Notes: This 98-nucleotide RNA belongs to the Rfam family "L2-Alphaproteobacteria ribosomal protein leader". The sequence is in the family's curated seed alignment. Pairs were carried over by alignment from the consensus structure, which is taken from published work. A reference for the family is Eckert and Weinberg (2020), "Discovery of 20 novel ribosomal leader candidates in bacteria and archaea", BMC Microbiol. It is annotated as a cis-regulatory leader.
RNA sequence: GGUCACCUGUUCAGCCAAUGGCGCUCAGGGGGCUUUACACCAAGGCGGUGAUCUCGGGCGAACUCGGGGCAUCGCUUAUGCUAAACGGAAGACAGAAA
Numbered sequence: 001g002g003u004c005a006c007c008u009g010u011u012c013a014g015c016c017a018a019u020g021g022c023g024c025u026c027a028g029g030g031g032g033c034u035u036u037a038c039a040c041c042a043a044g045g046c047g048g049u050g051a052u053c054u055c056g057g058g059c060g061a062a063c064u065c066g067g068g069g070c071a072u073c074g075c076u077u078a079u080g081c082u083a084a085a086c087g088g089a090a091g092a093c094a095g096a097a098a
Stems, first nucleotide, its partner, number of pairs: 001034004006030003044076007